[Rfam]
This 83-nucleotide RNA sequence from Homo sapiens belongs to the Rfam family "mir-1299 microRNA precursor family". Its family is annotated with miRNA-mediated post-transcriptional gene silencing and RISC complex in the Gene Ontology. The family's consensus secondary structure was predicted with RNAalifold. The family has 3 seed sequences and 113 matches in Rfam 15.1.
RNA sequence: CCUCGUAGUAGUGUUCUGGAAUCUUUUGUGAGGGACAAACAUUCAGACCUCCAUAGCAGUGUUCUGGAAUCCUAUGUGAGGGA
Numbered sequence: 001c002c003u004c005g006u007a008g009u010a011g012u013g014u015u016c017u018g019g020a021a022u023c024u025u026u027u028g029u030g031a032g033g034g035a036c037a038a039a040c041a042u043u044c045a046g047a048c049c050u051c052c053a054u055a056g057c058a059g060u061g062u063u064c065u066g067g068a069a070u071c072c073u074a075u076g077u078g079a080g081g082g083a
Stems, first nucleotide, its partner, number of pairs: 001081007009074003013070010024059002027056001028054003032050003